[Rfam]
Nucleotides: 111
Stems, first nucleotide, its partner, number of pairs: 001048004011041005017035001019033003024079004062106002083094004
Number, partner (000 for none) and nucleotide at each position: 001048u002047g003046g004045c005000g006000a007000u008000g009000a010000a011041g012040c013039a014038g015037u016000g017035g018000a019033c020032u021031g022000g023000u024079u025078c026077g027076g028000u029000a030000u031021c032020a033019g034000c035017c036000g037015a038014u039013u040012g041011u042000g043000g044000a045004g046003c047002c048001a049000g050000a051000c052000c053000a054000u055000g056000g057000g058000u059000u060000g061000a062106g063105c064000a065000u066000g067000a068000a069000c070000c071000a072000c073000a074000a075000g076027c077026c078025g079024a080000a081000u082000a083094g084093a085092c086091c087000a088000c089000a090000g091086g092085g093084u094083c095000g096000a097000a098000a099000g100000a101000a102000a103000a104000c105063g106062c107000u108000a109000u110000a111000a